[Rfam]
Description:
The family of this 75-nucleotide RNA from Leptobrachium leishanense is "mir-192/215 microRNA precursor family". This family represents the human microRNA (miRNA) precursors mir-192 and mir-215. Animal miRNAs are transcribed as ~70nt precursors and subsequently processed by the Dicer enzyme to give a ~22nt product. The literature on the family includes a 2003 paper in RNA by Lagos-Quintana et al., "New microRNAs from mouse and human". NCBI's taxonomy places the organism under Eukaryota, Opisthokonta, Metazoa, Megophryidae, Leptobrachium.
RNA sequence: ACGGGUCUAUGACCUAUGAUUUGACAGCCAGUGGAUGCAGAAUCUGCCUGUCAAUUCUGUAGGCCACAGAUGCGU
Numbered sequence: 001a002c003g004g005g006u007c008u009a010u011g012a013c014c015u016a017u018g019a020u021u022u023g024a025c026a027g028c029c030a031g032u033g034g035a036u037g038c039a040g041a042a043u044c045u046g047c048c049u050g051u052c053a054a055u056u057c058u059g060u061a062g063g064c065c066a067c068a069g070a071u072g073c074g075u
Stems, first nucleotide, its partner, number of pairs: 001075003005071004010066002013063004018057002021054007029046003